[Rfam]
RNA: Lysine riboswitch aptamer
RNA sequence: UAAGCCAGAAGAGGCGCGUCGCCCAGGUAGUGUGUCAGAGGAGCCGAUCCGAAGAAGGCACAGGAGGGGGUGCGACGCCGAGGUUAUUCACGCGCGGCAGCGUGGAUGGCCGACUACAGGGGCUGAAUCCCCUGGGUUGUCACCCAAAGCGACCACGGGAAGGUCGUUUCGCAAGGUGGAGAGCUUCUGGGUAA
Numbered sequence: 001u002a003a004g005c006c007a008g009a010a011g012a013g014g015c016g017c018g019u020c021g022c023c024c025a026g027g028u029a030g031u032g033u034g035u036c037a038g039a040g041g042a043g044c045c046g047a048u049c050c051g052a053a054g055a056a057g058g059c060a061c062a063g064g065a066g067g068g069g070g071u072g073c074g075a076c077g078c079c080g081a082g083g084u085u086a087u088u089c090a091c092g093c094g095c096g097g098c099a100g101c102g103u104g105g106a107u108g109g110c111c112g113a114c115u116a117c118a119g120g121g122g123c124u125g126a127a128u129c130c131c132c133u134g135g136g137u138u139g140u141c142a143c144c145c146a147a148a149g150c151g152a153c154c155a156c157g158g159g160a161a162g163g164u165c166g167u168u169u170c171g172c173a174a175g176g177u178g179g180a181g182a183g184c185u186u187c188u189g190g191g192u193a194a
Base pairs, nucleotide, nucleotide: 006189007188008187009186010185011184016078017077018076019075020074021073022072024070031062032061033060034059035058036057082111083110084109085108086107087106088105089104090103091102092101093100112138113137114136115135117134118133119132120131121130122129140179141178142177143176144175